[Rfam]
Nucleotides: 411
Base pairs, nucleotide, nucleotide: 050150051149052148053147055071056070057069058068059067060066088103090101091100092099093098105132106131107130108129109128111126112125178225179224180223183217184216185215186214189211190210192209195208196207197206198204199203249306250305252303253302254301255300256299258298259297260296263295264294266292268290271287272286273285274283275282313332314331315330316329317328318326319325320324336410337409338408339407346403347402348401349400350399351398365383366382367381368380370378371377
Number, partner (000 for none) and nucleotide at each position: 001000g002000u003000u004000u005000u006000g007000c008000g009000g010000c011000g012000g013000g014000a015000g016000c017000g018000c019000g020000g021000c022000u023000g024000g025000g026000g027000u028000u029000a030000c031000g032000g033000a034000u035000g036000g037000u038000g039000u040000g041000g042000u043000g044000u045000g046000c047000a048000g049000c050150g051149g052148u053147g054000c055071g056070g057069c058068g059067u060066g061000g062000a063000a064000g065000g066060c067059g068058c069057g070056u071055c072000u073000g074000g075000g076000c077000c078000g079000a080000g081000u082000g083000u084000g085000a086000g087000u088103g089000g090101a091100u092099g093098u094000g095000c096000g097000a098093a099092u100091g101090u102000g103088u104000g105132u106131g107130c108129g109128c110000g111126u112125g113000g114000g115000g116000c117000g118000u119000g120000c121000u122000a123000g124000g125112c126111g127000a128109g129108c130107g131106c132105g133000u134000g135000c136000g137000u138000c139000c140000g141000c142000c143000c144000c145000c146000a147053c148052g149051c150050c151000c152000c153000u154000c155000c156000c157000c158000c159000c160000g161000c162000c163000u164000a165000c166000a167000c168000c169000u170000u171000g172000a173000u174000c175000u176000u177000a178225u179224u180223u181000g182000a183217u184216c185215g186214g187000g188000u189211c190210g191000c192209g193000c194000c195208u196207c197206c198204g199203c200000c201000c202000c203199g204198c205000c206197g207196g208195g209192c210190c211189g212000c213000c214186c215185c216184g217183a218000a219000a220000u221000g222000a223180a224179a225178a226000g227000c228000u229000g230000u231000c232000c233000u234000c235000c236000u237000g238000c239000g240000a241000a242000g243000c244000c245000c246000c247000c248000u249306c250305c251000a252303c253302g254301g255300g256299g257000c258298g259297c260296u261000g262000u263295g264294c265000g266292g267000c268290g269000a270000g271287g272286c273285c274283u275282c276000u277000u278000g279000g280000g281000c282275g283274g284000u285273g286272g287271c288000g289000g290268c291000a292266c293000c294264g295263c296260g297259g298258u299256u300255c301254c302253c303252g304000a305250g306249g307000c308000c309000c310000a311000g312000a313332g314331c315330u316329g317328g318326u319325c320324c321000u322000g323000u324320g325319g326318g327000u328317c329316c330315g331314g332313c333000g334000c335000u336410c337409a338408g339407a340000g341000g342000u343000g344000a345000u346403g347402a348401a349400u350399u351398g352000a353000u354000c355000a356000g357000a358000u359000a360000g361000a362000c363000g364000a365383g366382g367381c368380u369000g370378g371377g372000u373000g374000u375000a376000u377371c378370c379000c380368g381367g382366c383365c384000g385000c386000u387000g388000a389000u390000u391000a392000c393000c394000g395000a396000g397000g398351c399350g400349a401348u402347u403346c404000u405000g406000a407339u408338c409337u410336g411000a

A member of the RNA family "Small Cajal body-specific RNA 2" from Nannospalax galili, 411 nucleotides long. The family's consensus secondary structure is taken from published work.